Rfam assigns this 47-nucleotide RNA sequence from Parazoarcus communis to the family "Guanidine-II riboswitch aptamer (mini-ykkC)". NCBI's taxonomy places the organism under Bacteria, Pseudomonadota, Betaproteobacteria, Rhodocyclales, Parazoarcus. A search with the family's covariance model found it, with a score of 36 bits. Rfam describes the family as follows. Simpler in structure and has fewer highly conserved nucleotide positions than the ykkC-yxkD leader. Despite this each of its two stem-loop structures directly bind free guanidine. Therefore, mini-ykkC RNA motif represents a distinct class of guanidine-sensing RNAs. Pairs were carried over by alignment from the consensus structure, which is taken from published work.
RNA sequence: AAAUGUGGACGACCUCAUUUCCUUAUCCAGUGAUGGGGACGACCCCG
Numbered sequence: 001a002a003a004u005g006u007g008g009a010c011g012a013c014c015u016c017a018u019u020u021c022c023u024u025a026u027c028c029a030g031u032g033a034u035g036g037g038g039a040c041g042a043c044c045c046c047g
Stems, first nucleotide, its partner, number of pairs: 001020005007014002034047005